This 102-nucleotide sequence from Helcobacillus massiliensis belongs to the Rfam family "mraW RNA". NCBI's taxonomy places the organism under Bacteria, Actinomycetota, Actinomycetes, Dermabacteraceae, Helcobacillus.
[Rfam]
RNA sequence: GACGCGACGUACCGCGAGACAUCUCUUCGCUCGCGCCCCGACGCUUCUUCCCCGGCGCCGGGUAGUGAGCGGAGGGAUGUCUGACGGUAUGACGCACGCACA
Numbered sequence: 001g002a003c004g005c006g007a008c009g010u011a012c013c014g015c016g017a018g019a020c021a022u023c024u025c026u027u028c029g030c031u032c033g034c035g036c037c038c039c040g041a042c043g044c045u046u047c048u049u050c051c052c053c054g055g056c057g058c059c060g061g062g063u064a065g066u067g068a069g070c071g072g073a074g075g076g077a078u079g080u081c082u083g084a085c086g087g088u089a090u091g092a093c094g095c096a097c098g099c100a101c102a
Stems, first nucleotide, its partner, number of pairs: 010089005018081002021078014037062004042057003

The match comes from Rfam's covariance-model search (54 bits). By type it is a cis-regulatory element.